Rfam assigns this 65-nucleotide RNA sequence from Microcaecilia unicolor to the family "Mammalian CPEB3 ribozyme". A search with the family's covariance model found it, with a score of 35 bits. Gene Ontology term of the family: RNA nuclease activity. The source organism's lineage runs through Eukaryota, Eumetazoa, Teleostomi, Euteleostomi and Microcaecilia. The family's consensus secondary structure is taken from published work.

RNA sequence: AAUCCAUUUGCAGGGGCCACAGCAGAAGUGCUCCUGUCAGAUCCUAGGUAUCUGUGAAAUCUGCU
Numbered sequence: 001a002a003u004c005c006a007u008u009u010g011c012a013g014g015g016g017c018c019a020c021a022g023c024a025g026a027a028g029u030g031c032u033c034c035u036g037u038c039a040g041a042u043c044c045u046a047g048g049u050a051u052c053u054g055u056g057a058a059a060u061c062u063g064c065u
Base pairs, nucleotide, nucleotide: 013034014033015032016031017030021065022064023063024062025061026060038054039053040052041051042050044048